The record is a 76-nucleotide RNA from Blautia obeum, which matches "c-di-GMP-I riboswitch aptamer" in Rfam.
RNA sequence: GAAAAUAAUUGGCAAAGCAGACGAAAGUCUGUGACGCAAAGCUAUAGGGCCUGUAAAAUGGCAGCCAGUUGCAUAA
Numbered sequence: 001g002a003a004a005a006u007a008a009u010u011g012g013c014a015a016a017g018c019a020g021a022c023g024a025a026a027g028u029c030u031g032u033g034a035c036g037c038a039a040a041g042c043u044a045u046a047g048g049g050c051c052u053g054u055a056a057a058a059u060g061g062c063a064g065c066c067a068g069u070u071g072c073a074u075a076a
Stems, first nucleotide, its partner, number of pairs: 012037002017032006040070004047066002049062003
About the family: GEMM was predicted in a large-scale screen for bacterial structured RNA regulatory elements. The match comes from Rfam's covariance-model search (62 bits).